[Rfam]
RNA sequence: AGAAGUGGAGUAGGUUUGAAAGAACAAAUUCAAAUAUCAAUGCAAACGGUGGGCAUGUUAUGCUGAAAAGGCUCGAGGGACAAGUCAAGGUACUAGCUAUUUCGUGAGUUCCUCGGGCAAAGGAAAAGACGUUCAAAACAAGUCACAGGGCAACAGAAAAUGGUAUUCUACGUUGUAUUUUCUAGCAAUACAACAAAUUUAUCAUACGAAUAAGGGAGAACCUAGAAAUCCAGUGUUUCGGGUUUAUUUCGAGCGGAAAGUUUCAGAUGCU
Numbered sequence: 001a002g003a004a005g006u007g008g009a010g011u012a013g014g015u016u017u018g019a020a021a022g023a024a025c026a027a028a029u030u031c032a033a034a035u036a037u038c039a040a041u042g043c044a045a046a047c048g049g050u051g052g053g054c055a056u057g058u059u060a061u062g063c064u065g066a067a068a069a070g071g072c073u074c075g076a077g078g079g080a081c082a083a084g085u086c087a088a089g090g091u092a093c094u095a096g097c098u099a100u101u102u103c104g105u106g107a108g109u110u111c112c113u114c115g116g117g118c119a120a121a122g123g124a125a126a127a128g129a130c131g132u133u134c135a136a137a138a139c140a141a142g143u144c145a146c147a148g149g150g151c152a153a154c155a156g157a158a159a160a161u162g163g164u165a166u167u168c169u170a171c172g173u174u175g176u177a178u179u180u181u182c183u184a185g186c187a188a189u190a191c192a193a194c195a196a197a198u199u200u201a202u203c204a205u206a207c208g209a210a211u212a213a214g215g216g217a218g219a220a221c222c223u224a225g226a227a228a229u230c231c232a233g234u235g236u237u238u239c240g241g242g243u244u245u246a247u248u249u250c251g252a253g254c255g256g257a258a259a260g261u262u263u264c265a266g267a268u269g270c271u
Base pairs, nucleotide, nucleotide: 002038003037005035006034008031009030010029011028014025015024016023017022042270043269044268050066052064053063054062055061056060071118072117073116074115075114076113077112078111079110080109081108085107086106087105089103090102122264123263124262125261130255131254132253133252134251142151143150144149160205161204162203163202164201165200172194173193174192175191176190177189178188179187214250215249216248217247218245219244220243221242222241223240225239226238227237228236229235
The family of this 271-nucleotide RNA from Listeria monocytogenes is "Listeria sRNA rli117". For this family Rfam cites "The intracellular sRNA transcriptome of Listeria monocytogenes during growth in macrophages" (Mraheil et al., Nucleic Acids Res, 2011). By type it is a small RNA. Rfam describes the family as follows. Coevolved with internalin genes lmo0549, lmo0263, lmo02470. Internalins are important virulence factors.